U4atac minor spliceosomal RNA: a 126-nucleotide sequence from Propithecus coquereli. Its family is annotated with mRNA 5'-splice site recognition, U4atac snRNP and spliceosomal tri-snRNP complex assembly in the Gene Ontology. The family has 61 seed sequences and 1,648 matches in Rfam 15.1. U4atac is an essential component of the minor U12-type spliceosome complex which is required for removal of the rarer class of eukaryotic introns (AT-AC, U12-type).

[Rfam]
RNA sequence: ACCAUCCUUGUCUUGGGGUAGCGCUACUGUCCCAUGAAUGAGUAGUGAGGGCAGUACUGCUCAUGCCUACACAACACGCCCGCAUCCGCUAGAGCUUUGCCUCACUUUGGGGCAAUUUUUGGAAAA
Numbered sequence: 001a002c003c004a005u006c007c008u009u010g011u012c013u014u015g016g017g018g019u020a021g022c023g024c025u026a027c028u029g030u031c032c033c034a035u036g037a038a039u040g041a042g043u044a045g046u047g048a049g050g051g052c053a054g055u056a057c058u059g060c061u062c063a064u065g066c067c068u069a070c071a072c073a074a075c076a077c078g079c080c081c082g083c084a085u086c087c088g089c090u091a092g093a094g095c096u097u098u099g100c101c102u103c104a105c106u107u108u109g110g111g112g113c114a115a116u117u118u119u120u121g122g123a124a125a126a
Stems, first nucleotide, its partner, number of pairs: 006018004021060003026055007038046002082113002085110002090104001092102001094100002
Annotation: Pairs were carried over by alignment from the consensus structure, which is taken from published work. The family is grouped with related families in Rfam's "U4 clan". The match comes from Rfam's covariance-model search (95 bits). Rfam classes the family as a spliceosomal small nuclear RNA. Lineage of the source: Eukaryota > Eumetazoa > Craniata > Boreoeutheria > Propithecus.